[Rfam]
RNA sequence: UUACUUACCUGGACGGGGUCGACGGGCGAUCAACAAGGCCCGUGGCCUGGGUCGAUGGCCCACAUUGCACUUGGUGGGUGCGUCGGCCCAUCAUCUCCCCUAAGUGGGAGAGUGAACGUCAUAAUUUGUGGUAGAGGGGGUACGCGUUCGCGCGGCCCCUG
Numbered sequence: 001u002u003a004c005u006u007a008c009c010u011g012g013a014c015g016g017g018g019u020c021g022a023c024g025g026g027c028g029a030u031c032a033a034c035a036a037g038g039c040c041c042g043u044g045g046c047c048u049g050g051g052u053c054g055a056u057g058g059c060c061c062a063c064a065u066u067g068c069a070c071u072u073g074g075u076g077g078g079u080g081c082g083u084c085g086g087c088c089c090a091u092c093a094u095c096u097c098c099c100c101u102a103a104g105u106g107g108g109a110g111a112g113u114g115a116a117c118g119u120c121a122u123a124a125u126u127u128g129u130g131g132u133a134g135a136g137g138g139g140g141u142a143c144g145c146g147u148u149c150g151c152g153c154g155g156c157c158c159c160u161g
Base pairs, nucleotide, nucleotide: 012120013119014118015117016048017047018046019045020044021043023042024041025040026039027038049089050088051087053086055083056082057081060078061077062075063074091115092114093113094111095110096109098107099106136160137159138158139157140156143154144153145152146151

Shown here is a 161-nucleotide RNA sequence from Triticum aestivum, a member of the family "U1 spliceosomal RNA". It scores 141 bits against the family's covariance model. Lineage of the source: Eukaryota > Streptophytina > Embryophyta > Tracheophyta > Triticum. Rfam 15.1 lists 40,184 matches to the family in 1,499 species. From the family's description: U1 is a small nuclear RNA (snRNA) component of the spliceosome (involved in pre-mRNA splicing). Its 5' end forms complementary base pairs with the 5' splice junction, thus defining the 5' donor site of an intron.